[Rfam]
RNA sequence: CAAUACUUGUCGGAGUGCCUUAGGGCUGAGACCGUUAAUUCGGGAUCCGUUGAACCUGAUCUGGUUAGUACCAGCGAAGGGAACAGGAGAAUAAAAUGG
Numbered sequence: 001c002a003a004u005a006c007u008u009g010u011c012g013g014a015g016u017g018c019c020u021u022a023g024g025g026c027u028g029a030g031a032c033c034g035u036u037a038a039u040u041c042g043g044g045a046u047c048c049g050u051u052g053a054a055c056c057u058g059a060u061c062u063g064g065u066u067a068g069u070a071c072c073a074g075c076g077a078a079g080g081g082a083a084c085a086g087g088a089g090a091a092u093a094a095a096a097u098g099g
Base pairs, nucleotide, nucleotide: 006087007086008085009084010083011049012048013047014046016043017026018025019024033042034041055080056079057078061074062073063072064071
Overview
Shown here is a 99-nucleotide sequence from Vibrio thalassae, a member of the family "TPP riboswitch aptamer (THI element)". The base pairs follow the family's consensus structure, which is taken from published work. The source organism's lineage runs through Bacteria, Pseudomonadati, Pseudomonadota, Gammaproteobacteria and Vibrio.